[Rfam]
RNA sequence: GCGGAGAUUUGGCUCAAUGGUUACUUCUCUAAACUUUGACUAACUCCAGUGAUACGCGGAUCAGGGGUUCGAACCGUGGCCGCUGUCUUUUGUUUUU
Numbered sequence: 001g002c003g004g005a006g007a008u009u010u011g012g013c014u015c016a017a018u019g020g021u022u023a024c025u026u027c028u029c030u031a032a033a034c035u036u037u038g039a040c041u042a043a044c045u046c047c048a049g050u051g052a053u054a055c056g057c058g059g060a061u062c063a064g065g066g067g068u069u070c071g072a073a074c075c076g077u078g079g080c081c082g083c084u085g086u087c088u089u090u091u092g093u094u095u096u097u
Stems, first nucleotide, its partner, number of pairs: 002092004006087001012081001014079002017077004025073003

Rfam assigns this 97-nucleotide RNA from Mola mola to the family "Vault RNA". About the family: This family of RNAs are found as part of the enigmatic vault ribonucleoprotein complex. The complex consists of a major vault protein (MVP), two minor vault proteins (VPARP and TEP1), and several small untranslated RNA molecules. It has been suggested that the vault complex is involved in drug resistance. Taxonomically the source falls in Mola (Eukaryota, Chordata, Osteoglossocephalai, Euacanthomorphacea). The match comes from Rfam's covariance-model search (40 bits). By type it is a non-coding RNA gene.